[Rfam]
RNA sequence: GAAUUUUUAUGGCAAACGGGUGGGAAACCCCCGGACGCAAAGCCGCGGACCCUUCCCCUGAUCGCUCAGGGCGGGUGGCCGGGUUGCCUGC
Numbered sequence: 001g002a003a004u005u006u007u008u009a010u011g012g013c014a015a016a017c018g019g020g021u022g023g024g025a026a027a028c029c030c031c032c033g034g035a036c037g038c039a040a041a042g043c044c045g046c047g048g049a050c051c052c053u054u055c056c057c058c059u060g061a062u063c064g065c066u067c068a069g070g071g072c073g074g075g076u077g078g079c080c081g082g083g084u085u086g087c088c089u090g091c
Stems, first nucleotide, its partner, number of pairs: 012038002017033004022029002041085004046081003049076003056071006
Dot-bracket structure: ...........((...((((.((....))))))...))..((((.((((((....((((((....))))))..)))..)))))))......
Background
Rfam assigns this 91-nucleotide RNA from Azoarcus sp. KH32C to the family "c-di-GMP-I riboswitch aptamer". About the family: GEMM was predicted in a large-scale screen for bacterial structured RNA regulatory elements. Its family is annotated with cyclic-di-GMP binding in the Gene Ontology.